[Rfam]
RNA sequence: ACGCAGGUUAAGUUACAGUAUAGCUGUGAAGUGCUGUUCUGUCGUUCCCCCUGCAAAUAAUAAAUUGCUUCCUACUAUCCCUGUCUGUUCUGAAACCAAUACAGCCGACAGGGACGCUUGGUCUCAAACAG
Numbered sequence: 001a002c003g004c005a006g007g008u009u010a011a012g013u014u015a016c017a018g019u020a021u022a023g024c025u026g027u028g029a030a031g032u033g034c035u036g037u038u039c040u041g042u043c044g045u046u047c048c049c050c051c052u053g054c055a056a057a058u059a060a061u062a063a064a065u066u067g068c069u070u071c072c073u074a075c076u077a078u079c080c081c082u083g084u085c086u087g088u089u090c091u092g093a094a095a096c097c098a099a100u101a102c103a104g105c106c107g108a109c110a111g112g113g114a115c116g117c118u119u120g121g122u123c124u125c126a127a128a129c130a131g
Stems, first nucleotide, its partner, number of pairs: 003054005015042004020037005080112004085104004
About this RNA:
The family of this 131-nucleotide RNA sequence from Aquarana catesbeiana is "Small nucleolar RNA SNORA63". Lineage of the source: Eukaryota > Vertebrata > Teleostomi > Tetrapoda > Aquarana. The family's RNA type in Rfam is H/ACA-box small nucleolar RNA. A search with the family's covariance model found it, with a score of 109 bits. On this family, see Mishra and Eliceiri, Proc Natl Acad Sci U S A 1997: "Three small nucleolar RNAs that are involved in ribosomal RNA precursor processing". Rfam's curators write: E3 belongs to the H/ACA class of snoRNAs and is involved in the processing of eukaryotic pre-rRNA and has regions of complementarity to 18S rRNA. E3 is encoded in introns in the gene for protein synthesis initiation factor 4AII.